Record summary
Small nucleolar RNA SNORD17: a 247-nucleotide RNA sequence from Alaudala cheleensis. It scores 128 bits against the family's covariance model. Rfam classes the family as a C/D-box small nucleolar RNA. The snoRNA HBI-43 belongs to the C/D family of snoRNAs, guiding 2'O-ribose methylation at position U3797 of the 28S rRNA. Pseudouridylation in position U3797 is predicted to be guided by the H/ACA snoRNA ACA48.
RNA sequence: GUGAGGUGAUGACACAGUUUAUCCAUUCUCUGAGUGCAGUGCAGCUGCCCUCCUGCAGCACCCCAGCUCCUGUUCUAGGCUCUGGGUGCUGUGCAGCCUCCAGACACCCUGCAGAGCCCCAGUGUGCUGCUGGGGGCUGCACUGGUGUGUGGCUGGCUGCCUGCAGGAGGGCAGCAGUGCUGGCAGGGAUGGAGCCCCUCUUUGGGGGGCUCCAUCCUCACUAAGAUGAGUGAUGCUGUCUGAUCAC
Numbered sequence: 001g002u003g004a005g006g007u008g009a010u011g012a013c014a015c016a017g018u019u020u021a022u023c024c025a026u027u028c029u030c031u032g033a034g035u036g037c038a039g040u041g042c043a044g045c046u047g048c049c050c051u052c053c054u055g056c057a058g059c060a061c062c063c064c065a066g067c068u069c070c071u072g073u074u075c076u077a078g079g080c081u082c083u084g085g086g087u088g089c090u091g092u093g094c095a096g097c098c099u100c101c102a103g104a105c106a107c108c109c110u111g112c113a114g115a116g117c118c119c120c121a122g123u124g125u126g127c128u129g130c131u132g133g134g135g136g137c138u139g140c141a142c143u144g145g146u147g148u149g150u151g152g153c154u155g156g157c158u159g160c161c162u163g164c165a166g167g168a169g170g171g172c173a174g175c176a177g178u179g180c181u182g183g184c185a186g187g188g189a190u191g192g193a194g195c196c197c198c199u200c201u202u203u204g205g206g207g208g209g210c211u212c213c214a215u216c217c218u219c220a221c222u223a224a225g226a227u228g229a230g231u232g233a234u235g236c237u238g239u240c241u242g243a244u245c246a247c
Stems, first nucleotide, its partner, number of pairs: 010246003017239002024232005030225002034221002040182002042179002046174001049171002051168007061088001063086002066082001069079003093160006106146002111140004117135008186219002188216006195209004